A member of the RNA family "Singlet oxygen resistance RNA X", 72 nucleotides long. Rfam 15.1 lists 528 matches to the family in 356 species. The family's RNA type in Rfam is small RNA. A search with the family's covariance model found it, with a score of 77 bits. Rfam's curators write: SorX (RSs2461)like SorY is a singlet oxygen induced sRNA that counteracts oxidative stress by targeting mRNA for a transporter in Rhodobacter. It also has an impact on resistance against organic hydroperoxides.
RNA sequence: CCCCGUUGCAUGUGCGGGUUAUCACAUGCACCUCCCUGUUGGACUGGCCCGGGCUCUGCCCGGGCCUUUUUU
Numbered sequence: 001c002c003c004c005g006u007u008g009c010a011u012g013u014g015c016g017g018g019u020u021a022u023c024a025c026a027u028g029c030a031c032c033u034c035c036c037u038g039u040u041g042g043a044c045u046g047g048c049c050c051g052g053g054c055u056c057u058g059c060c061c062g063g064g065c066c067u068u069u070u071u072u
Stems, first nucleotide, its partner, number of pairs: 008029007046066008
Dot-bracket structure: .......(((((((........)))))))................((((((((.....))))))))......